[Rfam]
RNA sequence: ACCGCAGCAAUAUACUCUAUUUUGCUAAUAUAAAAUAAAUAUAUUGCUGCGGUUUUU
Numbered sequence: 001a002c003c004g005c006a007g008c009a010a011u012a013u014a015c016u017c018u019a020u021u022u023u024g025c026u027a028a029u030a031u032a033a034a035a036u037a038a039a040u041a042u043a044u045u046g047c048u049g050c051g052g053u054u055u056u057u
Base pairs, nucleotide, nucleotide: 001053002052003051004050005049006048007047008046009045010044011043012042013041014040019036020035021034022033023032024031
This 57-nucleotide RNA from Beta vulgaris belongs to the Rfam family "Plastid-psbA-3 3UTR RNA". It is annotated as a cis-regulatory element. For this family Rfam cites "Retrograde signaling in plants: A critical review focusing on the GUN pathway and beyond" (Richter et al., Plant Commun, 2023). Its Rfam clan is "Plastid-psbA 3UTR RNA clan". The source organism's lineage runs through Eukaryota, Magnoliopsida, Gunneridae, Amaranthaceae and Beta vulgaris. Rfam describes the family as follows. Plastid psbA-3 is a non-coding RNA (ncRNA) present in plastids. It was identified in inverted repeat sequences in the 3 prime untranslate region (3UTR) of photosystem II quinone-binding protein (psbA).